[Rfam]
RNA sequence: UAAACAGGAACUCAAGUAAAGAGCGCCGCGUCCUGUGGCAAGACCUUAGUAACCGGCUUCAGCCGG
Numbered sequence: 001u002a003a004a005c006a007g008g009a010a011c012u013c014a015a016g017u018a019a020a021g022a023g024c025g026c027c028g029c030g031u032c033c034u035g036u037g038g039c040a041a042g043a044c045c046u047u048a049g050u051a052a053c054c055g056g057c058u059u060c061a062g063c064c065g066g
Stems, first nucleotide, its partner, number of pairs: 011049002014046001016044002025039005053066005